[Rfam]
RNA sequence: GAAUAAGGGCGCACGGGGGAUGCCUAGGCUCUCAGAGGCGAAGAAGGACGUGAUAAGCUGCGAAAAGCUACGGGGACCGGCCAAUGCGGUUUGAUCCGUAGAUAUCCGAAUGGGGCAACCCAGUCUUUUAAGACUAUUCCGUAAGGAAAGCGAACGUGGGGAACUGAAACAUCUAAGUACCCAUAGGAGGAGAAAAUAACAAUGAUUCCGUAAGUAGUGGCGAGCGAACGCGGAAGAGCCCAAACCGAUUAUGUUACGGCAUGAUCGGGGUUGUAGGACCUGCAUAAUCAAAGACAACGAGACGCGAACGGCAUGGGAAGGCCGACCGUAGAGGGUGAGAGUCCCGUAUUGGAAUUGUUGUUUGCGAGGCGGGUAUCCUGAGUAGGUCGGGACCGGAGAAAUCCCGAUUGAAACUGCCGGCACCAUCCGGUAAGGCUAAAUACUCCUGAGAGACCGAUAGUGAACUAGUACCGUGAGGAAAGGUGAAAAGUACUCCGAAUAGGAGGGUGAAAUAGAACCUGAAACCGUGCGCUUACAAG
Numbered sequence: 001g002a003a004u005a006a007g008g009g010c011g012c013a014c015g016g017g018g019g020a021u022g023c024c025u026a027g028g029c030u031c032u033c034a035g036a037g038g039c040g041a042a043g044a045a046g047g048a049c050g051u052g053a054u055a056a057g058c059u060g061c062g063a064a065a066a067g068c069u070a071c072g073g074g075g076a077c078c079g080g081c082c083a084a085u086g087c088g089g090u091u092u093g094a095u096c097c098g099u100a101g102a103u104a105u106c107c108g109a110a111u112g113g114g115g116c117a118a119c120c121c122a123g124u125c126u127u128u129u130a131a132g133a134c135u136a137u138u139c140c141g142u143a144a145g146g147a148a149a150g151c152g153a154a155c156g157u158g159g160g161g162a163a164c165u166g167a168a169a170c171a172u173c174u175a176a177g178u179a180c181c182c183a184u185a186g187g188a189g190g191a192g193a194a195a196a197u198a199a200c201a202a203u204g205a206u207u208c209c210g211u212a213a214g215u216a217g218u219g220g221c222g223a224g225c226g227a228a229c230g231c232g233g234a235a236g237a238g239c240c241c242a243a244a245c246c247g248a249u250u251a252u253g254u255u256a257c258g259g260c261a262u263g264a265u266c267g268g269g270g271u272u273g274u275a276g277g278a279c280c281u282g283c284a285u286a287a288u289c290a291a292a293g294a295c296a297a298c299g300a301g302a303c304g305c306g307a308a309c310g311g312c313a314u315g316g317g318a319a320g321g322c323c324g325a326c327c328g329u330a331g332a333g334g335g336u337g338a339g340a341g342u343c344c345c346g347u348a349u350u351g352g353a354a355u356u357g358u359u360g361u362u363u364g365c366g367a368g369g370c371g372g373g374u375a376u377c378c379u380g381a382g383u384a385g386g387u388c389g390g391g392a393c394c395g396g397a398g399a400a401a402u403c404c405c406g407a408u409u410g411a412a413a414c415u416g417c418c419g420g421c422a423c424c425a426u427c428c429g430g431u432a433a434g435g436c437u438a439a440a441u442a443c444u445c446c447u448g449a450g451a452g453a454c455c456g457a458u459a460g461u462g463a464a465c466u467a468g469u470a471c472c473g474u475g476a477g478g479a480a481a482g483g484u485g486a487a488a489a490g491u492a493c494u495c496c497g498a499a500u501a502g503g504a505g506g507g508u509g510a511a512a513u514a515g516a517a518c519c520u521g522a523a524a525c526c527g528u529g530c531g532c533u534u535a536c537a538a539g
Base pairs, nucleotide, nucleotide: 007534008533009532010531011530012529013528014527015526016525022519023483024482027455028454029452030451031450032449033448034447035446036444037443038151039150046107047106048105049062050061051060068101069100070099071098072097073096074095077089078088079087112121113120114119122135123134124133125132126131137148138147139146140145155186156184157183158182159181160180166173167172196203197202206440207234208233209232210231211230217225218224237437238436239435240434245268246267247266248265249264250263251262275379276378277377279373280372281371282370283369289366292363293362294361295360296359297358298357299356300355303351304350309324310323311322312321327331333345334344335343385409386408387407388406389405390404391403392402416431417430418429419428420427471478472477493505494504495503496502
Dot-bracket structure: ......((((((((((.....(((..(((((((((((((......((((((........))).....(((((((..(((.......))).....)))))))...)))....(((....)))(((((....))))).((((....)))).))...((((((.....((....))......))))).).........((....))..((((((.....((.....))....)))))..((((....(((((((..........)))))))......(((.(((((.....(..(((((((((..((....((((........))))..(...).(((.......)))....))...)))))))))..)..)))))...))).....((((((((.........))))))))......(((((......)))))..))))..)..)).))))))).))...............((....))...)).........((((.....)))).............).....)))))))))).....
Rfam assigns this 539-nucleotide part of an RNA from Algoriphagus machipongonensis to the family "Bacterial large subunit ribosomal RNA". On this family, see Yusupov et al., Science 2001: "Crystal structure of the ribosome at 5.5 A resolution". It scores 2738 bits against the family's covariance model.